Shown here is a 116-nucleotide RNA sequence from Petrocella atlantisensis, a member of the family "FMN riboswitch aptamer (RFN element)". Rfam describes the family as follows. The RFN element is a highly conserved domain that is found frequently in the 5'-untranslated regions of prokaryotic mRNAs that encode for flavin mononucleotide (FMN) biosynthesis and transport proteins. This element is a metabolite-dependent riboswitch that directly binds FMN in the absence of proteins. In Bacillus subtilis, the riboswitch most likely controls gene expression by causing premature transcription termination within the 5' untranslated region of the ribDEAHT operon and precluding access to the ribosome-binding site of ypaA mRNA.The FMN riboswitch structure, reported in present an FMN-bound six-stem junction, adopts a butterfly-like scaffold, stapled together by opposingly directed but nearly identically folded peripheral domains. A search with the family's covariance model found it, with a score of 123 bits. NCBI's taxonomy places the organism under Bacteria, Bacillati, Lachnospirales, Vallitaleaceae, Petrocella.
[Rfam]
RNA sequence: UAGUUCCUUCAGGGCAGGGUGUAAUUCCCGACCGGCGGUAAAGUCCGCGAGCCGAUUUUGGCUGACUUGGUGUAAUUCCAAGACCGACAGUAAAGUCUGGAUGAGAGAAGGCAAUU
Numbered sequence: 001u002a003g004u005u006c007c008u009u010c011a012g013g014g015c016a017g018g019g020u021g022u023a024a025u026u027c028c029c030g031a032c033c034g035g036c037g038g039u040a041a042a043g044u045c046c047g048c049g050a051g052c053c054g055a056u057u058u059u060g061g062c063u064g065a066c067u068u069g070g071u072g073u074a075a076u077u078c079c080a081a082g083a084c085c086g087a088c089a090g091u092a093a094a095g096u097c098u099g100g101a102u103g104a105g106a107g108a109a110g111g112c113a114a115u116u
Stems, first nucleotide, its partner, number of pairs: 004113001006111005017029003031096002033086002035048004043084002051062003066082005088099003